Shown here is a 404-nucleotide RNA from Deferribacter desulfuricans, a member of the family "Bacterial RNase P class A".
A search with the family's covariance model found it, with a score of 338 bits.
Taxonomically the source falls in Deferribacter desulfuricans (Bacteria, Deferribacterota, Deferribacterales, Deferribacteraceae).
RNA sequence: UGAGAUGGUCGGGUGAUCGCCUAACCAAUAGGGUUAGGAGGAAAGUCCGGACACCACAGGGCAGGGUAGUCGGUAACACCGACCUGCCGUGAGGCAGGGAAAGUGCCACAGAAAACAGACCGCCGAGCACCUCAUUGUAAGUAUUUUAAUAGUAACAAUAAAACACCUAAAAUGAGGUGCUCGGUAAGGGUGAAAAGGUGGGGUAAGAGCCCACCGCUUCAUCUGGUGACAGAUGAAGGCAUGGCAAACCCUACCCGGUGCAAGGCUAAAUAGGUGAGCGCUUGAGGGUGGCCCGCCCGAUGCUCACGGGUAAGCCGCUUGAGCUUGCUGGUAACAGCAAGUCUAGAGAAAUGAUCACCGCCCAUUUAUGGGUACAGAAUCCGGCUUAUAGACCAUCUCACCCU
Numbered sequence: 001u002g003a004g005a006u007g008g009u010c011g012g013g014u015g016a017u018c019g020c021c022u023a024a025c026c027a028a029u030a031g032g033g034u035u036a037g038g039a040g041g042a043a044a045g046u047c048c049g050g051a052c053a054c055c056a057c058a059g060g061g062c063a064g065g066g067u068a069g070u071c072g073g074u075a076a077c078a079c080c081g082a083c084c085u086g087c088c089g090u091g092a093g094g095c096a097g098g099g100a101a102a103g104u105g106c107c108a109c110a111g112a113a114a115a116c117a118g119a120c121c122g123c124c125g126a127g128c129a130c131c132u133c134a135u136u137g138u139a140a141g142u143a144u145u146u147u148a149a150u151a152g153u154a155a156c157a158a159u160a161a162a163a164c165a166c167c168u169a170a171a172a173u174g175a176g177g178u179g180c181u182c183g184g185u186a187a188g189g190g191u192g193a194a195a196a197g198g199u200g201g202g203g204u205a206a207g208a209g210c211c212c213a214c215c216g217c218u219u220c221a222u223c224u225g226g227u228g229a230c231a232g233a234u235g236a237a238g239g240c241a242u243g244g245c246a247a248a249c250c251c252u253a254c255c256c257g258g259u260g261c262a263a264g265g266c267u268a269a270a271u272a273g274g275u276g277a278g279c280g281c282u283u284g285a286g287g288g289u290g291g292c293c294c295g296c297c298c299g300a301u302g303c304u305c306a307c308g309g310g311u312a313a314g315c316c317g318c319u320u321g322a323g324c325u326u327g328c329u330g331g332u333a334a335c336a337g338c339a340a341g342u343c344u345a346g347a348g349a350a351a352u353g354a355u356c357a358c359c360g361c362c363c364a365u366u367u368a369u370g371g372g373u374a375c376a377g378a379a380u381c382c383g384g385c386u387u388a389u390a391g392a393c394c395a396u397c398u399c400a401c402c403c404u
Stems, first nucleotide, its partner, number of pairs: 001400010011389001012359007020038007043387003047384005052260004059294004064256005069083005084097005098251002103249002105245003120189002122185015197215006216240001217238003221234005264316004274307006286298004323342008